[Rfam]
RNA sequence: ACGAGUCUUUUUGCGGUCUGGGCUUGCUGUUCGUGAUUCCACCGGAAGCCCUUACCCCAAAAAGCAUUCG
Numbered sequence: 001a002c003g004a005g006u007c008u009u010u011u012u013g014c015g016g017u018c019u020g021g022g023c024u025u026g027c028u029g030u031u032c033g034u035g036a037u038u039c040c041a042c043c044g045g046a047a048g049c050c051c052u053u054a055c056c057c058c059a060a061a062a063a064g065c066a067u068u069c070g
Stems, first nucleotide, its partner, number of pairs: 007064007015056003020051004025046001027044001
RNA: mir-129 microRNA precursor family